[Rfam]
The family of this 106-nucleotide RNA from Candidatus Neomicrothrix parvicella is "Glycine riboswitch aptamer". Taxonomically the source falls in Candidatus Neomicrothrix parvicella (Bacteria, Bacillati, Acidimicrobiia, Candidatus Neomicrothrix). Gene Ontology term of the family: glycine biosynthetic process.

RNA sequence: CACACGCUGGAAAGCAGGGCCCUUCUCAUCCGAUGAGGGGCCCUCGCCGAAGGGGAAAGCCGGUUCGCCGGUGAAGCUCUCAGGCACCAUGGACAGCGGGGGGACC
Numbered sequence: 001c002a003c004a005c006g007c008u009g010g011a012a013a014g015c016a017g018g019g020c021c022c023u024u025c026u027c028a029u030c031c032g033a034u035g036a037g038g039g040g041c042c043c044u045c046g047c048c049g050a051a052g053g054g055g056a057a058a059g060c061c062g063g064u065u066c067g068c069c070g071g072u073g074a075a076g077c078u079c080u081c082a083g084g085c086a087c088c089a090u091g092g093a094c095a096g097c098g099g100g101g102g103g104a105c106c
Stems, first nucleotide, its partner, number of pairs: 003100001005098005016044010046085003049081002053079003059072002
Dot-bracket structure: ..(.(((((......((((((((((.........)))))))))).(((((..(((...((..........))....))))).)))........))))).)......